A member of the RNA family "FMN riboswitch aptamer (RFN element)" from Candidatus Izimoplasma sp. HR1, 117 nucleotides long. A search with the family's covariance model found it, with a score of 111 bits.
[Rfam]
RNA sequence: AACAAUCUUCAGGGCAGGGUGAAAUUCCCGACCGGCGGUAAAGUCCGCGAGCACGAAAGUGCAUGAAUUGGUGUAACUCCAAUACCGAUAGUACAGUCUAGAUGGAAGAAGAUAAAA
Number, nucleotide and partner (000 for none) at each position: 001a000002a000003c000004a000005a113006u112007c111008u110009u109010c108011a000012g000013g000014g000015c000016a000017g029018g028019g027020u000021g000022a000023a000024a000025u000026u000027c019028c018029c017030g000031a097032c096033c087034g086035g048036c047037g046038g045039u000040a000041a000042a000043g085044u084045c038046c037047g036048c035049g000050a000051g000052c000053a000054c000055g000056a000057a000058a000059g000060u000061g000062c000063a000064u000065g000066a000067a083068u082069u081070g080071g079072u000073g000074u000075a000076a000077c000078u000079c071080c070081a069082a068083u067084a044085c043086c034087g033088a000089u100090a099091g098092u000093a000094c000095a000096g032097u031098c091099u090100a089101g000102a000103u000104g000105g000106a000107a000108g010109a009110a008111g007112a006113u005114a000115a000116a000117a000